[Rfam]
Small nucleolar RNA Z157/R69/R10: a 98-nucleotide RNA sequence from Cephalotus follicularis. The base pairs follow the family's consensus structure, which was predicted with PFOLD. The family's RNA type in Rfam is C/D-box small nucleolar RNA. The match comes from Rfam's covariance-model search (82 bits).

Nucleotides: 098
Base pairs, nucleotide, nucleotide: 002097003096004095005094007092008091037070038069039068040067044063045061046060047059048058049057
Number, partner (000 for none) and nucleotide at each position: 001000a002097g003096g004095g005094g006000g007092g008091c009000a010000g011000u012000g013000a014000u015000g016000a017000u018000a019000c020000u021000a022000u023000g024000u025000u026000u027000u028000g029000g030000a031000c032000u033000a034000g035000a036000g037070u038069u039068u040067c041000u042000g043000a044063u045061c046060u047059g048058g049057g050000u051000c052000u053000c054000a055000u056000a057049c058048c059047c060046a061045g062000a063044a064000g065000u066000u067040g068039a069038a070037g071000a072000c073000u074000a075000a076000c077000c078000c079000u080000u081000g082000g083000c084000u085000g086000u087000c088000u089000g090000a091008g092007c093000a094005c095004c096003c097002u098000c